[Rfam]
RNA sequence: GGAAGAGGAUCGACCCCCGGUGGGGCGGCCAGGCUUCAAACCUGGUAGGGGCUGCCAGCGGUCCCUGGUGGGUUCGACUCCCACGCUCUUCC
Numbered sequence: 001g002g003a004a005g006a007g008g009a010u011c012g013a014c015c016c017c018c019g020g021u022g023g024g025g026c027g028g029c030c031a032g033g034c035u036u037c038a039a040a041c042c043u044g045g046u047a048g049g050g051g052c053u054g055c056c057a058g059c060g061g062u063c064c065c066u067g068g069u070g071g072g073u074u075c076g077a078c079u080c081c082c083a084c085g086c087u088c089u090u091c092c
Base pairs, nucleotide, nucleotide: 001092002091003090004089005088006087007086008084011027012026014024015023017022028046029045030044031043032042033041048065049064050063051062052061069083070082071081072080

A member of the RNA family "Selenocysteine transfer RNA" from Modicisalibacter xianhensis, 92 nucleotides long.
Lineage of the source: Bacteria > Pseudomonadati > Pseudomonadota > Halomonadaceae > Modicisalibacter.
The family's consensus secondary structure is taken from published work.
The match comes from Rfam's covariance-model search (76 bits).